Background:
This 71-nucleotide RNA from Agrilus planipennis belongs to the Rfam family "mir-305 microRNA precursor family". Rfam links the family to the GO terms miRNA-mediated post-transcriptional gene silencing and RISC complex. A reference for the family is Weaver et al. (2007), "Computational and transcriptional evidence for microRNAs in the honey bee genome", Genome Biol. The organism belongs to Agrilus, within Eukaryota. The match comes from Rfam's covariance-model search (78 bits).
[Rfam]
RNA sequence: CAUGCCUAUUGUACUUCAUCAGGUGCUCUGGUUUGAAUUUUCCCGACACCUGUUGGAGUACACUAAAUAUG
Dot-bracket structure: ((((.....(((.(((((.((.(((.(..((..........)).).))).)).))))).))).....))))